[Rfam]
RNA sequence: AUUUUUGGAUAAUCGCGUAGUAUUCAAAUACUAUGAGGAAAGUCCAUGCUAGCACUGGCUGCGAUGCCGGUAGUGUUUGUGCUAGGCGAAAAAAUAAGCCUAGGGGGGUAGUCUUUUCUGCCCUACGGCGAGUAAAAUGGCUAAGUCGUAAGAUAUGUCAGAAUAACUCUGAAAGUGCCACAGUGACGUAGUUUUUAUGGAAACGUAAAAAAUGGAACGCGGUAAACCCCUCAAGCUAGCAACCCAAACUUUGGUAGGGGCAUGGGAUAGCUGGAAGUGAACGGUCUAUCCUGACUGGAAACAGUAGACAGAUGAUUAUCGAAGGAGAUGGUACCUAGUCAUCUCUGGAACAAAACAUGGCUUAUAGAA
Numbered sequence: 001a002u003u004u005u006u007g008g009a010u011a012a013u014c015g016c017g018u019a020g021u022a023u024u025c026a027a028a029u030a031c032u033a034u035g036a037g038g039a040a041a042g043u044c045c046a047u048g049c050u051a052g053c054a055c056u057g058g059c060u061g062c063g064a065u066g067c068c069g070g071u072a073g074u075g076u077u078u079g080u081g082c083u084a085g086g087c088g089a090a091a092a093a094a095u096a097a098g099c100c101u102a103g104g105g106g107g108g109u110a111g112u113c114u115u116u117u118c119u120g121c122c123c124u125a126c127g128g129c130g131a132g133u134a135a136a137a138u139g140g141c142u143a144a145g146u147c148g149u150a151a152g153a154u155a156u157g158u159c160a161g162a163a164u165a166a167c168u169c170u171g172a173a174a175g176u177g178c179c180a181c182a183g184u185g186a187c188g189u190a191g192u193u194u195u196u197a198u199g200g201a202a203a204c205g206u207a208a209a210a211a212a213u214g215g216a217a218c219g220c221g222g223u224a225a226a227c228c229c230c231u232c233a234a235g236c237u238a239g240c241a242a243c244c245c246a247a248a249c250u251u252u253g254g255u256a257g258g259g260g261c262a263u264g265g266g267a268u269a270g271c272u273g274g275a276a277g278u279g280a281a282c283g284g285u286c287u288a289u290c291c292u293g294a295c296u297g298g299a300a301a302c303a304g305u306a307g308a309c310a311g312a313u314g315a316u317u318a319u320c321g322a323a324g325g326a327g328a329u330g331g332u333a334c335c336u337a338g339u340c341a342u343c344u345c346u347g348g349a350a351c352a353a354a355a356c357a358u359g360g361c362u363u364a365u366a367g368a369a
Stems, first nucleotide, its partner, number of pairs: 004369003007365001008320007016035006040363003044360005049239005054071006077234003081230001082103006104126001105124006127229002130169004138160004145154003175227002177223003192211008243259003263293007294305004324346009
Dot-bracket structure: ...(((((((((((.((((((........))))))....[[[.[[[[[(((((((((((......)))))).....(((.(((((((..........))))))(((((((........)))))).)((.((((....((((...(((....)))..)))).....)))).....(((((............((((((((....)))))))).........)))..))))).))))))))...(((...........)))...(((((((.................)))))))((((....))))........)))))))...(((((((((.....))))))))).........]]]]]]]].).)))